[Rfam]
The record is a 121-nucleotide RNA from Mesobacillus subterraneus, which matches "epsC RNA" in Rfam. Pairs were carried over by alignment from the consensus structure, which is taken from published work. Taxonomically the source falls in Mesobacillus (Bacteria, Bacillati, Bacilli, Bacillaceae).

RNA sequence: CGGCGAUGCCUCCUGUCCGUUACCCACGGAGGCACUCGAUCAUGCUGUGGGAUGCUUCUAUAAGCAGGCCUUAGACACGGGAGUUGUCGAUAGCAUGAUGUGAGGACGGGUUAGAUGCCCA
Numbered sequence: 001c002g003g004c005g006a007u008g009c010c011u012c013c014u015g016u017c018c019g020u021u022a023c024c025c026a027c028g029g030a031g032g033c034a035c036u037c038g039a040u041c042a043u044g045c046u047g048u049g050g051g052a053u054g055c056u057u058c059u060a061u062a063a064g065c066a067g068g069c070c071u072u073a074g075a076c077a078c079g080g081g082a083g084u085u086g087u088c089g090a091u092a093g094c095a096u097g098a099u100g101u102g103a104g105g106a107c108g109g110g111u112u113a114g115a116u117g118c119c120c121a
Base pairs, nucleotide, nucleotide: 001019002018003017007034008033009032010031011030012029013028035104036103037102038101039099040098041097042096043095044094045093046092049071050070051069053066054065055064056063057062074088075087076086077085108120109119110118111117
Dot-bracket structure: [[[...(((((((...]]]........)))))))((((((((((((..(((.(((((....)))))..)))..((((.......))))...)))))))).))))...((((.....)))).